[Rfam]
RNA sequence: CAACCGUCCGCUAAGGCGCACGGCAUAACGACAAUAACGAAAAGUUCCUCUUUGACGGGCCAGUAGCGAUACUGGCCUUCUUUUU
Number, nucleotide and partner (000 for none) at each position: 001c000002a000003a000004c000005c000006g000007u020008c000009c018010g017011c016012u000013a000014a000015g000016g011017c010018g009019c000020a007021c000022g000023g000024c000025a000026u000027a000028a035029c000030g000031a000032c000033a000034a000035u028036a000037a000038c000039g000040a000041a000042a000043a000044g000045u000046u000047c000048c000049u000050c000051u000052u000053u000054g000055a000056c000057g078058g077059g076060c075061c074062a073063g072064u071065a070066g000067c000068g000069a000070u065071a064072c063073u062074g061075g060076c059077c058078u057079u000080c000081u000082u000083u000084u000085u000
A member of the RNA family "sroB RNA" from Cronobacter sakazakii, 85 nucleotides long. It is annotated as a small RNA. A reference for the family is Vogel et al. (2003), "RNomics in Escherichia coli detects new sRNA species and indicates parallel transcriptional output in bacteria", Nucleic Acids Res. The base pairs follow the family's consensus structure, which was predicted with LocARNA.